A member of the RNA family "PhotoRC-I RNA", 43 nucleotides long.
The family's consensus secondary structure is taken from published work.

RNA sequence: AGGCAGGGCUACCUGCUCUUCCUUAAACCGUCCCUUCGGGGGC
Number, nucleotide and partner (000 for none) at each position: 001a000002g022003g021004c000005a019006g018007g017008g016009c015010u000011a000012c000013c000014u000015g009016c008017u007018c006019u005020u000021c003022c002023u000024u000025a000026a000027a000028c000029c000030g043031u042032c041033c040034c039035u000036u000037c000038g000039g034040g033041g032042g031043c030